The family of this 77-nucleotide sequence is "L13-Bacteroidia ribosomal protein leader".
RNA sequence: GGGGAUACGCUUAGAGUCCCCUGGGCAGUGUGUGUUAAUAGCAAUCUCCUGUGGCCUGGAAUUGCGGUUAGUGAAUC
Numbered sequence: 001g002g003g004g005a006u007a008c009g010c011u012u013a014g015a016g017u018c019c020c021c022u023g024g025g026c027a028g029u030g031u032g033u034g035u036u037a038a039u040a041g042c043a044a045u046c047u048c049c050u051g052u053g054g055c056c057u058g059g060a061a062u063u064g065c066g067g068u069u070a071g072u073g074a075a076u077c
Stems, first nucleotide, its partner, number of pairs: 001021006035071005041065005047059002
On this family, see Eckert and Weinberg, BMC Microbiol 2020: "Discovery of 20 novel ribosomal leader candidates in bacteria and archaea".